[Rfam]
Description
The family of this 146-nucleotide RNA from Alicyclobacillus hesperidum is "c-di-AMP riboswitch aptamer (ydaO/yuaA leader)". The family has 106 seed sequences and 7,607 matches in Rfam 15.1. The match comes from Rfam's covariance-model search (69 bits).
RNA sequence: UCAAAUACUAAGCCGAAUCUCCAGAUUGAUGAUCUGGGGUACGGGGGACUUCUUGGUUGUAAGACCUUGGGGUGAAUCGCCAUCUGCGACGGGUGUCUCGUCACCCGAACCCGACAACUAACCCCGGAGGCAGAACGAGAGGAUUU
Numbered sequence: 001u002c003a004a005a006u007a008c009u010a011a012g013c014c015g016a017a018u019c020u021c022c023a024g025a026u027u028g029a030u031g032a033u034c035u036g037g038g039g040u041a042c043g044g045g046g047g048a049c050u051u052c053u054u055g056g057u058u059g060u061a062a063g064a065c066c067u068u069g070g071g072g073u074g075a076a077u078c079g080c081c082a083u084c085u086g087c088g089a090c091g092g093g094u095g096u097c098u099c100g101u102c103a104c105c106c107g108a109a110c111c112c113g114a115c116a117a118c119u120a121a122c123c124c125c126g127g128a129g130g131c132a133g134a135a136c137g138a139g140a141g142g143a144u145u146u
Stems, first nucleotide, its partner, number of pairs: 012131003019039009042126005051069001070112003078088003091106004